[Rfam]
A member of the RNA family "Yersinia sRNA 251" from Serratia fonticola, 194 nucleotides long. It is one of the family's seed sequences. The family's consensus secondary structure was predicted with RNAfold. It is annotated as an antisense RNA.
RNA sequence: CGUAAGCAUUAAGCGUGCGUUGGCACAAAGCCGAGCGCACACAGUCCUGUUUGUCGAAACGAAUGAUACCGACCAUCUCGUCCUCUUCGAAGCGCUCCAGCGCGUCGCUAAGGCCGGAUUUCACGCCGCGUGGCAAAUCGCACUGGGUAAUAUCGCCGUUAACGAUCACCGUGACGUUCUCGCCCAGACGGGUC
Number, nucleotide and partner (000 for none) at each position: 001c000002g054003u053004a052005a051006g050007c049008a048009u000010u000011a000012a000013g000014c000015g040016u039017g038018c037019g036020u000021u000022g000023g000024c000025a000026c000027a000028a000029a000030g000031c000032c000033g000034a000035g000036c019037g018038c017039a016040c015041a000042c000043a000044g000045u000046c000047c000048u008049g007050u006051u005052u004053g003054u002055c000056g000057a000058a000059a000060c000061g078062a000063a076064u075065g074066a000067u072068a000069c000070c000071g000072a067073c000074c065075a064076u063077c000078u061079c000080g000081u000082c000083c112084u111085c000086u000087u000088c107089g000090a000091a000092g000093c102094g101095c100096u000097c000098c000099a000100g095101c094102g093103c000104g000105u000106c000107g088108c000109u000110a000111a084112g083113g193114c192115c191116g000117g189118a000119u188120u187121u186122c000123a000124c000125g134126c133127c132128g000129c000130g000131u000132g127133g126134c125135a000136a000137a166138u165139c164140g163141c000142a000143c000144u158145g157146g156147g000148u000149a000150a000151u000152a000153u000154c000155g000156c146157c145158g144159u000160u000161a000162a000163c140164g139165a138166u137167c000168a000169c000170c000171g183172u182173g181174a180175c000176g000177u000178u000179c000180u174181c173182g172183c171184c000185c000186a121187g120188a119189c117190g000191g115192g114193u113194c000